RNA sequence: UUGCCCGUGAGGGAACGUGGGGAGGAAGCCGGCGGCCAACCCACCGCCCACGGACCACGAACCGGGGGCGAGGCUGUCCCACUCGGGUGAACUGGUCAAGGACAGCGAAAGCCUAAGGCUGCCAAGGGGUGGGCCAGUAGAUACUGCGGGCGCGGGGAGAAGGUCGGCGCC
Numbered sequence: 001u002u003g004c005c006c007g008u009g010a011g012g013g014a015a016c017g018u019g020g021g022g023a024g025g026a027a028g029c030c031g032g033c034g035g036c037c038a039a040c041c042c043a044c045c046g047c048c049c050a051c052g053g054a055c056c057a058c059g060a061a062c063c064g065g066g067g068g069c070g071a072g073g074c075u076g077u078c079c080c081a082c083u084c085g086g087g088u089g090a091a092c093u094g095g096u097c098a099a100g101g102a103c104a105g106c107g108a109a110a111g112c113c114u115a116a117g118g119c120u121g122c123c124a125a126g127g128g129g130u131g132g133g134c135c136a137g138u139a140g141a142u143a144c145u146g147c148g149g150g151c152g153c154g155g156g157g158a159g160a161a162g163g164u165c166g167g168c169g170c171c
Stems, first nucleotide, its partner, number of pairs: 002015001004013003028171001030169002035164002041157002044154001046151004062146001064144001066142001073138003078133006085113002088110001092105003
RNA: Group II catalytic intron D1-D4-3